[Rfam]
RNA sequence: UGGUAGAUGCACCCUGAUUCAAAGCCCCUGGUUUCGCGGCCAGGGGUUUUCUUU
Numbered sequence: 001u002g003g004u005a006g007a008u009g010c011a012c013c014c015u016g017a018u019u020c021a022a023a024g025c026c027c028c029u030g031g032u033u034u035c036g037c038g039g040c041c042a043g044g045g046g047u048u049u050u051c052u053u054u
Stems, first nucleotide, its partner, number of pairs: 002013003025046009

The record is a 54-nucleotide RNA from Leptolyngbya sp. FACHB-16, which matches "Nitrogen stress-induced RNA 1" in Rfam.
NCBI's taxonomy places the organism under Bacteria, Cyanobacteriota, Cyanophyceae, Leptolyngbyales, Leptolyngbya.
Rfam classes the family as a small RNA.